Notes:
A member of the RNA family "Glycine riboswitch aptamer" from Sphingomonas sp. Leaf198, 104 nucleotides long. Clan: Glycine riboswitch clan. The organism belongs to Sphingomonas, within Bacteria. The match comes from Rfam's covariance-model search (64 bits).
RNA sequence: UGGCACCGCGCGGGAGAGCGUUUCCGGUCCUUUCAGGGCUGAUGGAACCGCCGAAGGAGCAACCACCCCGGAAUCUCUCAGGCACCAGAGACCGCGCGGGGCUG
Numbered sequence: 001u002g003g004c005a006c007c008g009c010g011c012g013g014g015a016g017a018g019c020g021u022u023u024c025c026g027g028u029c030c031u032u033u034c035a036g037g038g039c040u041g042a043u044g045g046a047a048c049c050g051c052c053g054a055a056g057g058a059g060c061a062a063c064c065a066c067c068c069c070g071g072a073a074u075c076u077c078u079c080a081g082g083c084a085c086c087a088g089a090g091a092c093c094g095c096g097c098g099g100g101g102c103u104g
Stems, first nucleotide, its partner, number of pairs: 006099008020048004050083003053079002057077003063071002